The family of this 29-nucleotide RNA from Alphavirus salmon is "togavirus ribosomal frameshift element". It is one of the family's seed sequences. For this family Rfam cites "Discovery of frameshifting in Alphavirus 6K resolves a 20-year enigma" (Firth et al., Virol J, 2008).
RNA sequence: GAGGGUGGUCAGCCCUGCUGGUCAUCCUU
Numbered sequence: 001g002a003g004g005g006u007g008g009u010c011a012g013c014c015c016u017g018c019u020g021g022u023c024a025u026c027c028u029u
Stems, first nucleotide, its partner, number of pairs: 001029007010020004